[Rfam]
RNA sequence: AGACGACAAUACUAAACCAUCCGCGAGGAUGGGACGGAAAGCCUAAAGGGUCUUGCCUCAAGACAGCCGGGUCGCCGAA
Dot-bracket structure: ...........((...((((((....))))))...))...(((....((((((((...))))))..)).))).......
Numbered sequence: 001a002g003a004c005g006a007c008a009a010u011a012c013u014a015a016a017c018c019a020u021c022c023g024c025g026a027g028g029a030u031g032g033g034a035c036g037g038a039a040a041g042c043c044u045a046a047a048g049g050g051u052c053u054u055g056c057c058u059c060a061a062g063a064c065a066g067c068c069g070g071g072u073c074g075c076c077g078a079a
Stems, first nucleotide, its partner, number of pairs: 012037002017032006041072003048068002050064006